[Rfam]
RNA: Small nucleolar RNA U2-30
Organism: Lynx pardinus
RNA sequence: GAGCAGUGAUGAGAAGGUUUCAUUGCUGACCUUUGUGACUAUGAAGAUUUCUACACUUGAACUGAACUCA
Numbered sequence: 001g002a003g004c005a006g007u008g009a010u011g012a013g014a015a016g017g018u019u020u021c022a023u024u025g026c027u028g029a030c031c032u033u034u035g036u037g038a039c040u041a042u043g044a045a046g047a048u049u050u051c052u053a054c055a056c057u058u059g060a061a062c063u064g065a066a067c068u069c070a
Stems, first nucleotide, its partner, number of pairs: 001069003013034007